[Rfam]
RNA sequence: AACAGUUCUCGGGGCGGGGUGAAAGUCCCCACCGGCGGUAUCAGGGAAACCUGGAGCCCGCGAGCGCCUUGGCAGGGUCAGUGAAUGCCGAGGGUCAGCAGAUCCGGUGAGAUGCCGGGGCCGACGGUCAUAGUCCGGAUGAUAGAGAACUUGG
Number, nucleotide and partner (000 for none) at each position: 001a000002a000003c000004a151005g150006u149007u148008c147009u146010c145011g000012g000013g000014g000015c000016g000017g029018g028019g027020u000021g000022a000023a000024a000025g000026u000027c019028c018029c017030c000031a134032c133033c123034g122035g061036c060037g059038g058039u000040a000041u000042c000043a000044g000045g000046g000047a000048a000049a000050c000051c000052u000053g000054g000055a000056g121057c120058c038059c037060g036061c035062g000063a000064g099065c098066g000067c000068c000069u000070u000071g000072g000073c000074a000075g000076g000077g000078u000079c000080a000081g000082u000083g000084a000085a000086u000087g000088c000089c000090g000091a000092g000093g000094g000095u000096c000097a000098g065099c064100a000101g000102a000103u119104c118105c117106g116107g115108u000109g000110a000111g000112a000113u000114g000115c107116c106117g105118g104119g103120g057121c056122c034123g033124a000125c137126g136127g135128u000129c000130a000131u000132a000133g032134u031135c127136c126137g125138g000139a000140u000141g000142a000143u000144a000145g010146a009147g008148a007149a006150c005151u004152u000153g000154g000